[Rfam]
RNA sequence: GAUGCUCCAUGACGGGAAGGAUCGAAAUGUCCUCAGGAUUCCUGGUUCUUCCCUGAAAUCCUCGCAGC
Dot-bracket structure: (.(((........((((((((((.....(((.....)))....))))))))))..........))).)

Selenocysteine insertion sequence 1: a 68-nucleotide RNA from Monodelphis domestica. The match comes from Rfam's covariance-model search (38 bits). It is annotated as a cis-regulatory element. On this family, see Walczak et al., RNA 1996: "A novel RNA structural motif in the selenocysteine insertion element of eukaryotic selenoprotein mRNAs". Gene Ontology term of the family: selenocysteine incorporation.